[Rfam]
RNA: Glycine riboswitch aptamer
Nucleotides: 106
Stems, first nucleotide, its partner, number of pairs: 007100002010097004020036004038085003041081002045079003051072009
Number, partner (000 for none) and nucleotide at each position: 001000u002000c003000a004000a005000a006000g007100c008099c009000g010097u011096c012095u013094g014000g015000a016000g017000a018000g019000c020036c021035a022034u023033c024000a025000c026000g027000c028000c029000a030000u031000g032000u033023g034022a035021u036020g037000c038085a039084c040083c041081g042080a043000a044000g045079g046078a047077g048000c049000a050000a051072a052071c053070c054069u055068g056067c057066u058065g059064c060000g061000g062000g063000c064059g065058c066057a067056g068055c069054g070053g071052g072051u073000g074000a075000a076000u077047c078046u079045c080042u081041c082000a083040g084039g085038u086000a087000c088000c089000g090000a091000g092000g093000a094013c095012a096011g097010g098000g099008g100007g101000a102000g103000c104000g105000g106000c